[Rfam]
The family of this 84-nucleotide sequence from Labeo rohita is "mir-25 microRNA precursor family". The source organism's lineage runs through Eukaryota, Craniata, Actinopteri, Cyprinidae and Labeo. A reference for the family is Linsen et al. (2010), "Small RNA expression and strain specificity in the rat", BMC Genomics. Pairs were carried over by alignment from the consensus structure, which was predicted with RNAalifold.
RNA sequence: AGCUGGUGUUGAGAGGCGGAGACUUGGGCAGUUGCUGGCUUUCCCACAAGGCAUUGCACUUGUCUCGGUCUGACAGUGCAGGCA
Numbered sequence: 001a002g003c004u005g006g007u008g009u010u011g012a013g014a015g016g017c018g019g020a021g022a023c024u025u026g027g028g029c030a031g032u033u034g035c036u037g038g039c040u041u042u043c044c045c046a047c048a049a050g051g052c053a054u055u056g057c058a059c060u061u062g063u064c065u066c067g068g069u070c071u072g073a074c075a076g077u078g079c080a081g082g083c084a
Base pairs, nucleotide, nucleotide: 002083003082004081006079007078008077009076014071015070016069017068019066020065021064022063023062028057029056030055031054032053034052035051036050038045